[Rfam]
RNA sequence: GGGGGGCAUAUGUUAAAAGAGAUGUUCACCCGAUACAAUCUUCCAAUACUGAAAUUUGUAUUUUCCUGCUUGUGGUACUGCGAGAAAGUUCUACAAGUCUCAAGAUACAAGACAUGCAU
Numbered sequence: 001g002g003g004g005g006g007c008a009u010a011u012g013u014u015a016a017a018a019g020a021g022a023u024g025u026u027c028a029c030c031c032g033a034u035a036c037a038a039u040c041u042u043c044c045a046a047u048a049c050u051g052a053a054a055u056u057u058g059u060a061u062u063u064u065c066c067u068g069c070u071u072g073u074g075g076u077a078c079u080g081c082g083a084g085a086a087a088g089u090u091c092u093a094c095a096a097g098u099c100u101c102a103a104g105a106u107a108c109a110a111g112a113c114a115u116g117c118a119u
Stems, first nucleotide, its partner, number of pairs: 001031003005027001006025004011020001055112003068098008077089003

The family of this 119-nucleotide RNA sequence from Ensete ventricosum is "Small nucleolar RNA snoR104". Pairs were carried over by alignment from the consensus structure, which was predicted with WAR. It scores 79 bits against the family's covariance model.